Apolipoprotein B (apoB) 5' UTR cis-regulatory element: a 127-nucleotide sequence from Piliocolobus tephrosceles. A reference for the family is Pontrelli et al. (2004), "Translational control of apolipoprotein B mRNA: regulation via cis elements in the 5' and 3' untranslated regions", Biochemistry. The match comes from Rfam's covariance-model search (134 bits). This family represents an apolipoprotein B (apoB) cis regulatory element located in the 5' UTR of apoB mRNA. The element is important for optimal translation. The base pairs follow the family's consensus structure, which is taken from published work. Taxonomically the source falls in Piliocolobus (Eukaryota, Dipnotetrapodomorpha, Eutheria, Colobinae).
[Rfam]
RNA sequence: AUUCCCACCGGGACCCGCGGGACUGAGCGCUCUUCUCAGUUGCUGUCGCUGAGGAGCCCGCCCAGCCAGCCAGGGCUGCGAGGCCGAGGCCAGGCCGCAGCCCAGGAGCCGUCCCACCGCAGCUGGC
Numbered sequence: 001a002u003u004c005c006c007a008c009c010g011g012g013a014c015c016c017g018c019g020g021g022a023c024u025g026a027g028c029g030c031u032c033u034u035c036u037c038a039g040u041u042g043c044u045g046u047c048g049c050u051g052a053g054g055a056g057c058c059c060g061c062c063c064a065g066c067c068a069g070c071c072a073g074g075g076c077u078g079c080g081a082g083g084c085c086g087a088g089g090c091c092a093g094g095c096c097g098c099a100g101c102c103c104a105g106g107a108g109c110c111g112u113c114c115c116a117c118c119g120c121a122g123c124u125g126g127c
Stems, first nucleotide, its partner, number of pairs: 003013004017098004021067001023065003027061003032056009069090003074085004100127003107124003111120002